About this RNA
A member of the RNA family "Purine riboswitch aptamer" from Fervidicella metallireducens, 100 nucleotides long. Rfam describes the family as follows. Riboswitches are metabolite binding domains within certain messenger RNAs that serve as precision sensors for their corresponding targets. Pairs were carried over by alignment from the consensus structure, which is taken from published work. A search with the family's covariance model found it, with a score of 81 bits.

[Rfam]
RNA sequence: AAAAAAAUAGUUGAUGAACUUCGUAUAACUCCAAUAAUAGGGUUUGGAGGUCUCUACCAGGAACCGAUAAUUCCUGAUUACGAAGAGAAUACAUUUUGUA
Numbered sequence: 001a002a003a004a005a006a007a008u009a010g011u012u013g014a015u016g017a018a019c020u021u022c023g024u025a026u027a028a029c030u031c032c033a034a035u036a037a038u039a040g041g042g043u044u045u046g047g048a049g050g051u052c053u054c055u056a057c058c059a060g061g062a063a064c065c066g067a068u069a070a071u072u073c074c075u076g077a078u079u080a081c082g083a084a085g086a087g088a089a090u091a092c093a094u095u096u097u098g099u100a
Stems, first nucleotide, its partner, number of pairs: 019085007029049006058076006
Dot-bracket structure: ..................(((((((...((((((.........))))))........((((((.......))))))..)))))))...............